[Rfam]
RNA sequence: UAAAAUUCUAUGAUUAGGAAAAGUAUUCUUAAAAAUUAAUUUUAGCGAGUAAAAGAGGGUGGGAGUUUUACAUUAAUUUAAGAAGAAAAUAGAGCCUAUGAGAAGCUAUGUGAAAAGAGGUAAAACUCGUAGUAACAUAUGCCGCAAUAAAUGCGUUAAAAUAUUUGAGAGGAUAGGUAAAAUCGAAAUUUUACUUAUCAAUUAGAGUGGUACCGCGGAUAUAUCCGUCUCUAUA
Numbered sequence: 001u002a003a004a005a006u007u008c009u010a011u012g013a014u015u016a017g018g019a020a021a022a023g024u025a026u027u028c029u030u031a032a033a034a035a036u037u038a039a040u041u042u043u044a045g046c047g048a049g050u051a052a053a054a055g056a057g058g059g060u061g062g063g064a065g066u067u068u069u070a071c072a073u074u075a076a077u078u079u080a081a082g083a084a085g086a087a088a089a090u091a092g093a094g095c096c097u098a099u100g101a102g103a104a105g106c107u108a109u110g111u112g113a114a115a116a117g118a119g120g121u122a123a124a125a126c127u128c129g130u131a132g133u134a135a136c137a138u139a140u141g142c143c144g145c146a147a148u149a150a151a152u153g154c155g156u157u158a159a160a161a162u163a164u165u166u167g168a169g170a171g172g173a174u175a176g177g178u179a180a181a182a183u184c185g186a187a188a189u190u191u192u193a194c195u196u197a198u199c200a201a202u203u204a205g206a207g208u209g210g211u212a213c214c215g216c217g218g219a220u221a222u223a224u225c226c227g228u229c230u231c232u233a234u235a
Base pairs, nucleotide, nucleotide: 007103008102015098016097017096018095026084027083028082029081030080031079038074039073040072049071050070051069052068053067054066106141107139108138109137110136111135143155144154145153172199173198174197175196176195177194178193179192180191181190182189204232205231206230207229215228216227217226218225219224
Shown here is a 235-nucleotide sequence from Clostridium collagenovorans, a member of the family "T-box leader". Gene Ontology term of the family: tRNA binding. It is annotated as a cis-regulatory leader. Uncharged tRNA acts as the effector for transcription antitermination of genes in the T-box leader family.